[Rfam]
RNA: Nuclear RNase P
RNA sequence: AUGACUCGUAGUCCGCACUAGAGGUGGCCGCUUUCUAGGCUCACCUUUGGGAAGGUCUGAGAGUGCCACUACUCAUUCGAGUAGGUUGGAUCGUGAUGAUCCUCUCCGUAAGCGGAGAGCAAGCCCUCAGAAACGAACGGCAUCAAUGAACCUGUGUCGGCAAGCGAUAGAUCGUUUACGGUCUUGAUGCCUUGAUACGGCGGCAACGUCGUGUCCACACUAGAAACAUGUCCGGUGAAACGGAGGCUUGCGGCCAGCUGAAACUCAAAACAGUUCGAUGUGCGGAGUAGCUUGCUUCUUCGGAGCUGCUAUAACCCAAUUCAGACUACUCACGAGUCAU
Numbered sequence: 001a002u003g004a005c006u007c008g009u010a011g012u013c014c015g016c017a018c019u020a021g022a023g024g025u026g027g028c029c030g031c032u033u034u035c036u037a038g039g040c041u042c043a044c045c046u047u048u049g050g051g052a053a054g055g056u057c058u059g060a061g062a063g064u065g066c067c068a069c070u071a072c073u074c075a076u077u078c079g080a081g082u083a084g085g086u087u088g089g090a091u092c093g094u095g096a097u098g099a100u101c102c103u104c105u106c107c108g109u110a111a112g113c114g115g116a117g118a119g120c121a122a123g124c125c126c127u128c129a130g131a132a133a134c135g136a137a138c139g140g141c142a143u144c145a146a147u148g149a150a151c152c153u154g155u156g157u158c159g160g161c162a163a164g165c166g167a168u169a170g171a172u173c174g175u176u177u178a179c180g181g182u183c184u185u186g187a188u189g190c191c192u193u194g195a196u197a198c199g200g201c202g203g204c205a206a207c208g209u210c211g212u213g214u215c216c217a218c219a220c221u222a223g224a225a226a227c228a229u230g231u232c233c234g235g236u237g238a239a240a241c242g243g244a245g246g247c248u249u250g251c252g253g254c255c256a257g258c259u260g261a262a263a264c265u266c267a268a269a270a271c272a273g274u275u276c277g278a279u280g281u282g283c284g285g286a287g288u289a290g291c292u293u294g295c296u297u298c299u300u301c302g303g304a305g306c307u308g309c310u311a312u313a314a315c316c317c318a319a320u321u322c323a324g325a326c327u328a329c330u331c332a333c334g335a336g337u338c339a340u
Stems, first nucleotide, its partner, number of pairs: 001340004007334003012286007020048008057324005065254003088102005103118006119251007138234003287312005